[Rfam]
RNA sequence: GCCGGUGUAGCUCAAUUGGUAGAGCACUGGUUUUGUAAACCAGGGGUUGGGAGUUCAAGUCUCUUCGCCGGCA
Numbered sequence: 001g002c003c004g005g006u007g008u009a010g011c012u013c014a015a016u017u018g019g020u021a022g023a024g025c026a027c028u029g030g031u032u033u034u035g036u037a038a039a040c041c042a043g044g045g046g047u048u049g050g051g052a053g054u055u056c057a058a059g060u061c062u063c064u065u066c067g068c069c070g071g072c073a
Stems, first nucleotide, its partner, number of pairs: 001072007010025004027043005049065005

Rfam assigns this 73-nucleotide RNA from Limihaloglobus sulfuriphilus to the family "tRNA". Lineage of the source: Bacteria > Pseudomonadati > Sedimentisphaerales > Sedimentisphaeraceae > Limihaloglobus. It is annotated as a transfer RNA. Transfer RNA (tRNA) molecules are approximately 80 nucleotides in length. Their secondary structure includes four short double-helical elements and three loops (D, anti-codon, and T loops).